Background: This 119-nucleotide RNA from Desulforamulus reducens belongs to the Rfam family "Molybdenum/Tungsten riboswitch aptamer (Moco RNA motif)".
[Rfam]
RNA sequence: AAAUUAAUAGUACUCCGAGCUUAGGCACCUAAGAUAGUAAUUAUGGUUCUUAAGCCGUUAGGGUUUGUCUGGAAACGGGCAGGCCUCCCAAUGCGGAAAGGAGAAACACAUUAUGCCAA
Number, nucleotide and partner (000 for none) at each position: 001a000002a000003a000004u000005u000006a000007a000008u000009a000010g000011u105012a000013c103014u102015c101016c100017g000018a000019g055020c054021u053022u052023a051024g050025g049026c000027a047028c046029c045030u000031a000032a000033g042034a041035u040036a000037g000038u000039a000040a035041u034042u033043a000044u000045g029046g028047u027048u000049c025050u024051u023052a022053a021054g020055c019056c000057g000058u000059u000060a000061g086062g085063g084064u083065u082066u081067g080068u079069c078070u077071g076072g000073a000074a000075a000076c071077g070078g069079g068080c067081a066082g065083g064084c063085c062086u061087c096088c095089c000090a000091a000092u000093g000094c000095g088096g087097a000098a000099a000100g016101g015102a014103g013104a000105a011106a000107c000108a000109c000110a000111u000112u000113a000114u000115g000116c000117c000118a000119a000

It is one of the family's seed sequences. The organism belongs to Desulforamulus reducens, within Bacteria. Pairs were carried over by alignment from the consensus structure, which is taken from published work.